[Rfam]
RNA sequence: CGAGCCGACCGGGCGGCCGCGGUACCACCGAAUAGUGGGCUGAGGAACGUCCGGGCUCCACAGGGCAGGGUGGUGGCUAACGGCCACCCGGGGUGACCCGCGGGACAGUGCCACAGAGAACAGACCGCCAGGCAGGGCCUGGUCAGGGUGAAACGGCGGGGUAAGAGCCCACCAGCGCGCCGGGUGACCGGCGCGGCUCGGUAAACCCCACCCGGAGCAAGACCGCACAGCAGGCGUCCGAGGGCUGCCCGCCCGAGCCUGCGGGUAGGUCGCGUGAGACCACCAGCAAUGGUGGCCCAAGAGGAAUGGUCGCCACCGCGGGCGAGCCUGCGGCAACAGAACCCGGCGUACAGGUCGGCUCACCGC
Numbered sequence: 001c002g003a004g005c006c007g008a009c010c011g012g013g014c015g016g017c018c019g020c021g022g023u024a025c026c027a028c029c030g031a032a033u034a035g036u037g038g039g040c041u042g043a044g045g046a047a048c049g050u051c052c053g054g055g056c057u058c059c060a061c062a063g064g065g066c067a068g069g070g071u072g073g074u075g076g077c078u079a080a081c082g083g084c085c086a087c088c089c090g091g092g093g094u095g096a097c098c099c100g101c102g103g104g105a106c107a108g109u110g111c112c113a114c115a116g117a118g119a120a121c122a123g124a125c126c127g128c129c130a131g132g133c134a135g136g137g138c139c140u141g142g143u144c145a146g147g148g149u150g151a152a153a154c155g156g157c158g159g160g161g162u163a164a165g166a167g168c169c170c171a172c173c174a175g176c177g178c179g180c181c182g183g184g185u186g187a188c189c190g191g192c193g194c195g196g197c198u199c200g201g202u203a204a205a206c207c208c209c210a211c212c213c214g215g216a217g218c219a220a221g222a223c224c225g226c227a228c229a230g231c232a233g234g235c236g237u238c239c240g241a242g243g244g245c246u247g248c249c250c251g252c253c254c255g256a257g258c259c260u261g262c263g264g265g266u267a268g269g270u271c272g273c274g275u276g277a278g279a280c281c282a283c284c285a286g287c288a289a290u291g292g293u294g295g296c297c298c299a300a301g302a303g304g305a306a307u308g309g310u311c312g313c314c315a316c317c318g319c320g321g322g323c324g325a326g327c328c329u330g331c332g333g334c335a336a337c338a339g340a341a342c343c344c345g346g347c348g349u350a351c352a353g354g355u356c357g358g359c360u361c362a363c364c365g366c
Base pairs, nucleotide, nucleotide: 002361003360004359005358006357007356008355009354010353011351012314013313014312015311016310017309018308020042021041022040023039025038026037027036028035047349048348049347051346052345053344054343055342056217057216058215059214063250064249065248066247068213069212070211071210072209073087074086075085076084077083088102089100090099091098092097103208104207108206109205110202111201112200125147126146127143128142129141130140131139132138133137155173156172158170159169160168175197176195177194178193179192180191181190182189183188221271222270223269224268230262231261232260233259234258235257242254243253244252245251278297280295281294282293283292284291285290

The record is a 366-nucleotide RNA from Actinomyces sp. HMT897, which matches "Bacterial RNase P class A" in Rfam. It is annotated as a ribozyme. The source organism's lineage runs through Bacteria, Bacillati, Actinomycetota, Actinomycetales and Actinomyces.